[Rfam]
RNA sequence: UCAGUAGCCAGGCUCCUGGCUAAAUUCCAGCUCAUAGCUGGACUUUGCCAAAGCCUGACUGUAAA
Numbered sequence: 001u002c003a004g005u006a007g008c009c010a011g012g013c014u015c016c017u018g019g020c021u022a023a024a025u026u027c028c029a030g031c032u033c034a035u036a037g038c039u040g041g042a043c044u045u046u047g048c049c050a051a052a053g054c055c056u057g058a059c060u061g062u063a064a065a
Stems, first nucleotide, its partner, number of pairs: 007059001009057001011055004017050004022045002027041005